[Rfam]
RNA sequence: GAGUUAAUGCUAAUCGUGAUAGGGGUUGUUGGUUACAGGCACCUAGCAUGUUAGCAUUAGCUU
Numbered sequence: 001g002a003g004u005u006a007a008u009g010c011u012a013a014u015c016g017u018g019a020u021a022g023g024g025g026u027u028g029u030u031g032g033u034u035a036c037a038g039g040c041a042c043c044u045a046g047c048a049u050g051u052u053a054g055c056a057u058u059a060g061c062u063u
Stems, first nucleotide, its partner, number of pairs: 004060011020045004025040003

Rfam assigns this 63-nucleotide RNA from Takifugu flavidus to the family "mir-155 microRNA precursor family". The source organism's lineage runs through Eukaryota, Euteleostomi, Tetraodontiformes, Tetradontoidea and Takifugu. The family's consensus secondary structure was predicted with RNAalifold.